[Rfam]
RNA sequence: CCCCUCCAGAUCCCUUUCCCAUCAGAUCUGAAUACCGAUCUCGUGGUCGAAAAAGGAGGAAGAGCAAAACGCAGCCUGGCCUGGGCCUCUCUGCUCAUGCGGCCGUGCUCUGAGGAGGGUCAGGUUGCAGACACGG
Number, nucleotide and partner (000 for none) at each position: 001c000002c000003c059004c058005u057006c056007c055008a000009g000010a000011u000012c000013c000014c000015u000016u000017u000018c000019c046020c045021a044022u000023c043024a000025g040026a039027u038028c037029u000030g000031a000032a000033u000034a000035c000036c000037g028038a027039u026040c025041u000042c000043g023044u021045g020046g019047u000048c000049g000050a000051a000052a000053a000054a000055g007056g006057a005058g004059g003060a000061a000062g000063a000064g000065c000066a000067a000068a000069a000070c000071g000072c000073a000074g000075c124076c123077u122078g121079g120080c119081c118082u000083g000084g000085g000086c000087c000088u000089c000090u000091c000092u000093g000094c000095u000096c000097a000098u000099g000100c000101g000102g000103c000104c000105g000106u000107g000108c000109u000110c000111u000112g000113a000114g000115g000116a000117g000118g081119g080120u079121c078122a077123g076124g075125u000126u000127g000128c000129a000130g000131a000132c000133a000134c000135g000136g000